Rfam assigns this 111-nucleotide RNA from Mesorhizobium sp. 8 to the family "Alphaproteobacterial ar14". Its family is annotated with biological process involved in symbiotic interaction in the Gene Ontology. Rfam's curators write: Smr14C2 was renamed NfeR1 (Nodule Formation Efficiency RNA) highly expressed in salt stress and during the symbiotic interaction on legume roots. Lineage of the source: Bacteria > Pseudomonadati > Alphaproteobacteria > Hyphomicrobiales > Mesorhizobium. By type it is a small RNA. On this family, see del Val et al., RNA Biol 2012: "A survey of sRNA families in alpha-proteobacteria". It scores 59 bits against the family's covariance model.
RNA sequence: AAUAACCGGCAGCGCGGUCCCUCCUCCCUCCGCCUGCCGGUGAAAGACCAGCACCUCCUCCCGCUGGUCCCAGACGGAAAAGGCCGGCCCUCCUCCCGCCGGCCUUUUUCU
Numbered sequence: 001a002a003u004a005a006c007c008g009g010c011a012g013c014g015c016g017g018u019c020c021c022u023c024c025u026c027c028c029u030c031c032g033c034c035u036g037c038c039g040g041u042g043a044a045a046g047a048c049c050a051g052c053a054c055c056u057c058c059u060c061c062c063g064c065u066g067g068u069c070c071c072a073g074a075c076g077g078a079a080a081a082g083g084c085c086g087g088c089c090c091u092c093c094u095c096c097c098g099c100c101g102g103c104c105u106u107u108u109u110c111u
Stems, first nucleotide, its partner, number of pairs: 007039003011035002014033004046069006078108011